[Rfam]
RNA sequence: GCCUCUGUUUGAUAUGUUUGAUAUUAGGUUGUUCUACUGCAAAAUCCAACUAAAUAUCAAACAUAUUCUGAUAGCGGC
Dot-bracket structure: ....(((((.(((((((((((((((.(((((...............))))).)))))))))))))))..)))))....
A member of the RNA family "mir-190 microRNA precursor family" from Ophiophagus hannah, 78 nucleotides long. Rfam's curators put it in the seed alignment. Taxonomically the source falls in Ophiophagus (Eukaryota, Deuterostomia, Squamata, Toxicofera).